Rfam assigns this 97-nucleotide RNA sequence from Endozoicomonas numazuensis to the family "Group II catalytic intron D1-D4-1". Gene Ontology term of the family: Group II intron splicing. The match comes from Rfam's covariance-model search (58 bits). Lineage of the source: Bacteria > Gammaproteobacteria > Oceanospirillales > Endozoicomonadaceae > Endozoicomonas. The pairing is the family consensus, mapped onto this sequence. Rfam describes the family as follows. Group II introns are found in rRNA, tRNA and mRNA of organelles in fungi, plants and protists, and also in mRNA in bacteria.
RNA sequence: CGUCAGUCAGAGGCAACUCUGCUGGUGAUUAAGCAGAAGUCAGCAGAAGGCAUAGUAGUCAAAUGCCCGGCGUAAUGGCCGGGACACGACGAAGGCC
Numbered sequence: 001c002g003u004c005a006g007u008c009a010g011a012g013g014c015a016a017c018u019c020u021g022c023u024g025g026u027g028a029u030u031a032a033g034c035a036g037a038a039g040u041c042a043g044c045a046g047a048a049g050g051c052a053u054a055g056u057a058g059u060c061a062a063a064u065g066c067c068c069g070g071c072g073u074a075a076u077g078g079c080c081g082g083g084a085c086a087c088g089a090c091g092a093a094g095g096c097c
Base pairs, nucleotide, nucleotide: 001027002026004024005023006022008021009020010019011018012017040047041046049097050096051095058090059089060088067082068081069080